RNA sequence: GGGUAGGCAAUAGCUCAGGGAGUUACUCCGUUACCACUUAUACAGCUAAUCUUCUGUAUCCCAGAUCGGGUCUAGAGUGCAGAAACUCCCGGCGCAGUCCUAACCCUUUU
Numbered sequence: 001g002g003g004u005a006g007g008c009a010a011u012a013g014c015u016c017a018g019g020g021a022g023u024u025a026c027u028c029c030g031u032u033a034c035c036a037c038u039u040a041u042a043c044a045g046c047u048a049a050u051c052u053u054c055u056g057u058a059u060c061c062c063a064g065a066u067c068g069g070g071u072c073u074a075g076a077g078u079g080c081a082g083a084a085a086c087u088c089c090c091g092g093c094g095c096a097g098u099c100c101u102a103a104c105c106c107u108u109u110u
Stems, first nucleotide, its partner, number of pairs: 002105002004102004013093003019089004027070004
Shown here is a 110-nucleotide sequence from Apostichopus japonicus, a member of the family "Vault RNA". Rfam's curators write: This family of RNAs are found as part of the enigmatic vault ribonucleoprotein complex. The complex consists of a major vault protein (MVP), two minor vault proteins (VPARP and TEP1), and several small untranslated RNA molecules. It has been suggested that the vault complex is involved in drug resistance. Pairs were carried over by alignment from the consensus structure, which is taken from published work. The family's RNA type in Rfam is non-coding RNA gene. It scores 36 bits against the family's covariance model.